This 131-nucleotide sequence from Maylandia zebra belongs to the Rfam family "Small nucleolar RNA ACA64". By type it is an H/ACA-box small nucleolar RNA. For this family Rfam cites "A computational screen for mammalian pseudouridylation guide H/ACA RNAs" (Schattner et al., RNA, 2006). The family's consensus secondary structure was predicted with WAR.
RNA sequence: UGAGACUGAAAAUGAUCUCAGAUGUAAAAGUGGUCUGAGGUCAGAUAACUGAGCCUAGAGUACUCUGGUACAUUAAGCUUAUCACCUGCUCUGCCUGUUAUCAGAGUGAUAAAACCCAUGUGCCAACAAAC
Numbered sequence: 001u002g003a004g005a006c007u008g009a010a011a012a013u014g015a016u017c018u019c020a021g022a023u024g025u026a027a028a029a030g031u032g033g034u035c036u037g038a039g040g041u042c043a044g045a046u047a048a049c050u051g052a053g054c055c056u057a058g059a060g061u062a063c064u065c066u067g068g069u070a071c072a073u074u075a076a077g078c079u080u081a082u083c084a085c086c087u088g089c090u091c092u093g094c095c096u097g098u099u100a101u102c103a104g105a106g107u108g109a110u111a112a113a114a115c116c117c118a119u120g121u122g123c124c125a126a127c128a129a130a131c
Stems, first nucleotide, its partner, number of pairs: 006051001008049001010046001013043004021035003067124001069122005079112005087103002